Description:
Rfam assigns this 206-nucleotide sequence to the family "raiA RNA". The sequence is in the family's curated seed alignment. The base pairs follow the family's consensus structure, which is taken from published work. By type it is a riboswitch.

[Rfam]
RNA sequence: AAUAUUUAGGUCUGUGGUUGAAAGUCCAAGCCAGUCGCAGGCAAAGGGAUCCACGUAAGUCAACACUAAAAAUGGGGUUGAUGAUCAUGGUGCGGCUUAGAAGUAAGACCUACCGGUAUAAAAUCGAGAGAGCUAGUAGUGCGGCAAACCCAAGCGAACCCUCCAGUAGGCGAGUGUGGGGUCAAAAACCAGGUCAGCUAAAUAUU
Numbered sequence: 001a002a003u004a005u006u007u008a009g010g011u012c013u014g015u016g017g018u019u020g021a022a023a024g025u026c027c028a029a030g031c032c033a034g035u036c037g038c039a040g041g042c043a044a045a046g047g048g049a050u051c052c053a054c055g056u057a058a059g060u061c062a063a064c065a066c067u068a069a070a071a072a073u074g075g076g077g078u079u080g081a082u083g084a085u086c087a088u089g090g091u092g093c094g095g096c097u098u099a100g101a102a103g104u105a106a107g108a109c110c111u112a113c114c115g116g117u118a119u120a121a122a123a124u125c126g127a128g129a130g131a132g133c134u135a136g137u138a139g140u141g142c143g144g145c146a147a148a149c150c151c152a153a154g155c156g157a158a159c160c161c162u163c164c165a166g167u168a169g170g171c172g173a174g175u176g177u178g179g180g181g182u183c184a185a186a187a188a189c190c191a192g193g194u195c196a197g198c199u200a201a202a203u204a205u206u
Stems, first nucleotide, its partner, number of pairs: 001206009012197003015191005028177001030175001031041001033097007050090002055085001058082001060080001062078001064076001088184001109170005114126004130163003139155002143151002